[Rfam]
RNA sequence: CAGGGUACCCUUUGACCCUCCUUAGUUCAACCAAAUGAACUAAAACUUUAGUUCAUUUGGUUGAACUAAGGAGGGUCAAAGGGUAUCCUG
Numbered sequence: 001c002a003g004g005g006u007a008c009c010c011u012u013u014g015a016c017c018c019u020c021c022u023u024a025g026u027u028c029a030a031c032c033a034a035a036u037g038a039a040c041u042a043a044a045a046c047u048u049u050a051g052u053u054c055a056u057u058u059g060g061u062u063g064a065a066c067u068a069a070g071g072a073g074g075g076u077c078a079a080a081g082g083g084u085a086u087c088c089u090g
Stems, first nucleotide, its partner, number of pairs: 002089042
Dot-bracket structure: .((((((((((((((((((((((((((((((((((((((((((....)))))))))))))))))))))))))))))))))))))))))).
RNA: MIR5070 microRNA precursor family